[Rfam]
RNA sequence: GAAGAUGUUUUCUAGGGUUCCGCAAACGAUUUUGGUUGGCCUGGUCCGAGAGAAGACACACAGCUUUGCUGUGCCACGGAGGGACAAAAGCCCGGGAGAU
Numbered sequence: 001g002a003a004g005a006u007g008u009u010u011u012c013u014a015g016g017g018u019u020c021c022g023c024a025a026a027c028g029a030u031u032u033u034g035g036u037u038g039g040c041c042u043g044g045u046c047c048g049a050g051a052g053a054a055g056a057c058a059c060a061c062a063g064c065u066u067u068g069c070u071g072u073g074c075c076a077c078g079g080a081g082g083g084a085c086a087a088a089a090g091c092c093c094g095g096g097a098g099a100u
Base pairs, nucleotide, nucleotide: 007057008056009055010054011053012052015047016046020044021043022041023038024037025036027034028033059073060072061071062070063069075095077098081093082092083091
Rfam assigns this 100-nucleotide RNA from Mesobacillus campisalis to the family "Guanidine-I riboswitch aptamer". The organism belongs to Mesobacillus, within Bacteria.